[Rfam]
RNA sequence: GUCCUUUUAUUUGGCCUCAAAUCUAUCUAUAUUACGUGUGUCAGCUUGGCUGACUAUGGCGAUAAACGGCCGUCGGAAUAAGCCCAUCGGACCCGGGGGCAGUACCCGGCGCCUCCACCAUAAACCCGCUCUCCACAGGCGCGCUGCACGGGCGGACGCGGGUUUUUGAUGGGGGCGAACUAGGAUCGACGAGGGUGUAAAGGACGGACCUUCGCCCGGCAUGGUACCGCCGUUACAGGACCACAAACAGUAGUUGCGAACGACAACUAUGCUCCGGUUGCUCAGGCUGCGUAAGGCAGCUUAGGCACCGAAAUUCAAAGUCCUGGGCACUAAGCACGCCCAGGCGCGGUACGGAGGGCACCGGGCAACAGAAGCCCUCCAUC
Numbered sequence: 001g002u003c004c005u006u007u008u009a010u011u012u013g014g015c016c017u018c019a020a021a022u023c024u025a026u027c028u029a030u031a032u033u034a035c036g037u038g039u040g041u042c043a044g045c046u047u048g049g050c051u052g053a054c055u056a057u058g059g060c061g062a063u064a065a066a067c068g069g070c071c072g073u074c075g076g077a078a079u080a081a082g083c084c085c086a087u088c089g090g091a092c093c094c095g096g097g098g099g100c101a102g103u104a105c106c107c108g109g110c111g112c113c114u115c116c117a118c119c120a121u122a123a124a125c126c127c128g129c130u131c132u133c134c135a136c137a138g139g140c141g142c143g144c145u146g147c148a149c150g151g152g153c154g155g156a157c158g159c160g161g162g163u164u165u166u167u168g169a170u171g172g173g174g175g176c177g178a179a180c181u182a183g184g185a186u187c188g189a190c191g192a193g194g195g196u197g198u199a200a201a202g203g204a205c206g207g208a209c210c211u212u213c214g215c216c217c218g219g220c221a222u223g224g225u226a227c228c229g230c231c232g233u234u235a236c237a238g239g240a241c242c243a244c245a246a247a248c249a250g251u252a253g254u255u256g257c258g259a260a261c262g263a264c265a266a267c268u269a270u271g272c273u274c275c276g277g278u279u280g281c282u283c284a285g286g287c288u289g290c291g292u293a294a295g296g297c298a299g300c301u302u303a304g305g306c307a308c309c310g311a312a313a314u315u316c317a318a319a320g321u322c323c324u325g326g327g328c329a330c331u332a333a334g335c336a337c338g339c340c341c342a343g344g345c346g347c348g349g350u351a352c353g354g355a356g357g358g359c360a361c362c363g364g365g366c367a368a369c370a371g372a373a374g375c376c377c378u379c380c381a382u383c
Stems, first nucleotide, its partner, number of pairs: 040054005058216005068209001070207005083195003087192003093109005110177007217232004222243003227239002347363004353380006
RNA: Alphaproteobacteria transfer-messenger RNA
Organism: Dichotomicrobium thermohalophilum